This 67-nucleotide RNA sequence from Methylocella tundrae belongs to the Rfam family "S-element".
A search with the family's covariance model found it, with a score of 62 bits.
The source organism's lineage runs through Bacteria, Pseudomonadati, Alphaproteobacteria, Hyphomicrobiales and Methylocella.
This family represents a group of S-elements from p42d and related plasmids. The S-element has multiple functions and is believed to act as a negative regulator of repC transcription, be required for efficient replication and act as a translational enhancer of repC.

Nucleotides: 067
Stems, first nucleotide, its partner, number of pairs: 009064002012061003017058004022054002029047001031045005
Number, partner (000 for none) and nucleotide at each position: 001000a002000g003000u004000c005000a006000a007000g008000a009064g010063u011000c012061u013060u014059u015000a016000g017058c018057g019056u020055c021000g022054u023053u024000u025000c026000g027000g028000c029047g030000a031045g032044c033043a034042g035041a036000u037000u038000u039000u040000c041035u042034u043033u044032g045031c046000c047029u048000a049000a050000g051000a052000c053023a054022a055020g056019g057018c058017g059014a060013a061012g062000a063010a064009c065000a066000u067000g